Rfam assigns this 280-nucleotide RNA from Rhipicephalus microplus to the family "RNase MRP".
The family's consensus secondary structure is taken from published work.
NCBI's taxonomy places the organism under Eukaryota, Metazoa, Bilateria, Ixodidae, Boophilus.
Clan: RNaseP clan.
RNA sequence: AUGUUUCGCCUAUGCUUGAUCUCGGAGCUACGAACGAUCCCUGCGUGGAUCCCACCGUAGUUGCUCUGGGGAAAGUCCCCAGACGCUUGGCAGAAAGUGCCAGGGCGCAAAGCCCCUAUCCCCGGUUAGAAGCGCACGUUAAACGCGAGGACGCCGGUGUGCGGAGCGGUGCGUAGGCUGGGGACACCGUCGCAGCAAAGUAAUGCAAGCUCGCCCUGCGAUGCCUUCCGCUUGGAAGUCCGCGCGGCCGAACUACAAUGGGGCUCACUCAGGAGGAACU
Numbered sequence: 001a002u003g004u005u006u007c008g009c010c011u012a013u014g015c016u017u018g019a020u021c022u023c024g025g026a027g028c029u030a031c032g033a034a035c036g037a038u039c040c041c042u043g044c045g046u047g048g049a050u051c052c053c054a055c056c057g058u059a060g061u062u063g064c065u066c067u068g069g070g071g072a073a074a075g076u077c078c079c080c081a082g083a084c085g086c087u088u089g090g091c092a093g094a095a096a097g098u099g100c101c102a103g104g105g106c107g108c109a110a111a112g113c114c115c116c117u118a119u120c121c122c123c124g125g126u127u128a129g130a131a132g133c134g135c136a137c138g139u140u141a142a143a144c145g146c147g148a149g150g151a152c153g154c155c156g157g158u159g160u161g162c163g164g165a166g167c168g169g170u171g172c173g174u175a176g177g178c179u180g181g182g183g184a185c186a187c188c189g190u191c192g193c194a195g196c197a198a199a200g201u202a203a204u205g206c207a208a209g210c211u212c213g214c215c216c217u218g219c220g221a222u223g224c225c226u227u228c229c230g231c232u233u234g235g236a237a238g239u240c241c242g243c244g245c246g247g248c249c250g251a252a253c254u255a256c257a258a259u260g261g262g263g264c265u266c267a268c269u270c271a272g273g274a275g276g277a278a279c280u
Base pairs, nucleotide, nucleotide: 003279004278005277006276007275009273010272011271014210015209016208017207018206022069023068024067025066026065027064028063036051037050038049039048040047074265075264077263078262079261080260089101090100091099092098102117103116104115105114119184120183121182122181123180124179125178126177127176132174133173134172135171144168145167146166153162154161212250213249215247216246